Description:
Shown here is a 189-nucleotide RNA from Macrolepiota fuliginosa, a member of the family "U2 spliceosomal RNA". NCBI's taxonomy places the organism under Eukaryota, Opisthokonta, Basidiomycota, Agaricomycetidae, Macrolepiota fuliginosa. From the family's description: U2 is a small nuclear RNA (snRNA) component of the spliceosome (involved in pre-mRNA splicing). The family's consensus secondary structure is taken from published work. Rfam classes the family as a spliceosomal small nuclear RNA. A reference for the family is Berglund et al. (2001), "Crystal structure of a model branchpoint-U2 snRNA duplex containing bulged adenosines", RNA.
RNA sequence: UUACCACUCUGGCCUUUUGGCUUAGAUCAAGUGUAGUAUCUGUUCUUAAUAGUUUAACCACUAUUAUGGGAGCACCGCUCCCAUUCUUGGUUAUUUAAUUUUUGCCGCCCCUGUCCCUCGUCCUCUGCUUGCACGACCUGGGCGUAAUGACUUUGCUGCUGCACUAUCGGCUUAUGUCGUUGGGGGAUU
Numbered sequence: 001u002u003a004c005c006a007c008u009c010u011g012g013c014c015u016u017u018u019g020g021c022u023u024a025g026a027u028c029a030a031g032u033g034u035a036g037u038a039u040c041u042g043u044u045c046u047u048a049a050u051a052g053u054u055u056a057a058c059c060a061c062u063a064u065u066a067u068g069g070g071a072g073c074a075c076c077g078c079u080c081c082c083a084u085u086c087u088u089g090g091u092u093a094u095u096u097a098a099u100u101u102u103u104g105c106c107g108c109c110c111c112u113g114u115c116c117c118u119c120g121u122c123c124u125c126u127g128c129u130u131g132c133a134c135g136a137c138c139u140g141g142g143c144g145u146a147a148u149g150a151c152u153u154u155g156c157u158g159c160u161g162c163a164c165u166a167u168c169g170g171c172u173u174a175u176g177u178c179g180u181u182g183g184g185g186g187a188u189u
Stems, first nucleotide, its partner, number of pairs: 008026003011022004047066006067083007115142003120137001124135001126133002145182006152174001155171003